Shown here is a 64-nucleotide RNA from Nocardia nova, a member of the family "Fluoride riboswitch aptamer (crcB RNA motif)".
RNA sequence: UGAUCUGUAGGCGAUGAAGCUCGCCUUCGACCGCGCCCCCGGCGCUGAUGGCUUCUACCACGGU
Numbered sequence: 001u002g003a004u005c006u007g008u009a010g011g012c013g014a015u016g017a018a019g020c021u022c023g024c025c026u027u028c029g030a031c032c033g034c035g036c037c038c039c040c041g042g043c044g045c046u047g048a049u050g051g052c053u054u055c056u057a058c059c060a061c062g063g064u
Stems, first nucleotide, its partner, number of pairs: 010025004016055006033045004

The organism belongs to Nocardia nova, within Bacteria.
Its family is annotated with response to fluoride and positive regulation of gene expression in the Gene Ontology.
The base pairs follow the family's consensus structure, which is taken from published work.